[Rfam]
RNA: MIR6274 microRNA precursor family
Organism: Prunus persica
RNA sequence: GGAUAGUAUUGCUUUGCUAUCUUCGACUAAAAAUAUAAUGACACGUGGAAAAGAUAUUUUACGUGUCAUUACGUUAUUAGUUGGAAAUAACAAAAAAAUAUUAUCC
Numbered sequence: 001g002g003a004u005a006g007u008a009u010u011g012c013u014u015u016g017c018u019a020u021c022u023u024c025g026a027c028u029a030a031a032a033a034u035a036u037a038a039u040g041a042c043a044c045g046u047g048g049a050a051a052a053g054a055u056a057u058u059u060u061a062c063g064u065g066u067c068a069u070u071a072c073g074u075u076a077u078u079a080g081u082u083g084g085a086a087a088u089a090a091c092a093a094a095a096a097a098a099u100a101u102u103a104u105c106c
Stems, first nucleotide, its partner, number of pairs: 002105004013094004018089003022085009032075003036071015